[Rfam]
RNA: Aggregatibacter sRNA 22
RNA sequence: GUGCGGCGACGAAAAUCGAAGAUUUUUGCACGUUGGCUUUGCCGACAACCCCGAAGGGAAAAGAAACCGUUUCGGCGGCUUCGAAUAAAAAUCUCAUCAU
Numbered sequence: 001g002u003g004c005g006g007c008g009a010c011g012a013a014a015a016u017c018g019a020a021g022a023u024u025u026u027u028g029c030a031c032g033u034u035g036g037c038u039u040u041g042c043c044g045a046c047a048a049c050c051c052c053g054a055a056g057g058g059a060a061a062a063g064a065a066a067c068c069g070u071u072u073c074g075g076c077g078g079c080u081u082c083g084a085a086u087a088a089a090a091a092u093c094u095c096a097u098c099a100u
Base pairs, nucleotide, nucleotide: 010028011027012026013025014024015023016022017021032046033045034044035043036042037041050058051057052056063082064081065080067078068077069076070075085097086096088094